[Rfam]
RNA sequence: CCCAUGGCUGGCGCCAUGGGCUGAUCCGUGGCGACGCGUCGCGACU
Numbered sequence: 001c002c003c004a005u006g007g008c009u010g011g012c013g014c015c016a017u018g019g020g021c022u023g024a025u026c027c028g029u030g031g032c033g034a035c036g037c038g039u040c041g042c043g044a045c046u
Base pairs, nucleotide, nucleotide: 001020002019003018004017005016006015007014008013033045035043036042037041
Shown here is a 46-nucleotide RNA from Posidoniimonas polymericola, a member of the family "Acido-Lenti-1 RNA". A search with the family's covariance model found it, with a score of 42 bits. NCBI's taxonomy places the organism under Bacteria, Planctomycetia, Pirellulales, Lacipirellulaceae, Posidoniimonas. The family's consensus secondary structure is taken from published work. The family's RNA type in Rfam is small RNA.